Rfam assigns this 100-nucleotide sequence from Gadus morhua to the family "Vault RNA". Taxonomically the source falls in Gadus (Eukaryota, Neopterygii, Teleostei, Euteleosteomorpha). Rfam describes the family as follows. This family of RNAs are found as part of the enigmatic vault ribonucleoprotein complex. The complex consists of a major vault protein (MVP), two minor vault proteins (VPARP and TEP1), and several small untranslated RNA molecules. It has been suggested that the vault complex is involved in drug resistance. Pairs were carried over by alignment from the consensus structure, which is taken from published work.

RNA sequence: GCGCUGGUUUAGCUCAGUGGUUACUUCCUACAAAUAAUCUGUUCGAUUUCCUGUACCAUCCCAUCCCGGGAUCGAACCACGGGCGCUGUCCAGCGUUUUU
Numbered sequence: 001g002c003g004c005u006g007g008u009u010u011a012g013c014u015c016a017g018u019g020g021u022u023a024c025u026u027c028c029u030a031c032a033a034a035u036a037a038u039c040u041g042u043u044c045g046a047u048u049u050c051c052u053g054u055a056c057c058a059u060c061c062c063a064u065c066c067c068g069g070g071a072u073c074g075a076a077c078c079a080c081g082g083g084c085g086c087u088g089u090c091c092a093g094c095g096u097u098u099u100u
Stems, first nucleotide, its partner, number of pairs: 002095006012084004017080004025076003